[Rfam]
RNA sequence: GUGUUUUCAUGGUACUAAAUUUUAAGGUUAAAAUGAAGAAAGGGUUGUCGGAAGGUAACCCUUUCUUUGAUU
Dot-bracket structure: ..........................................(((((((....)))))))............
RNA: Bacteroidetes FopS (family of paralogous sRNAs)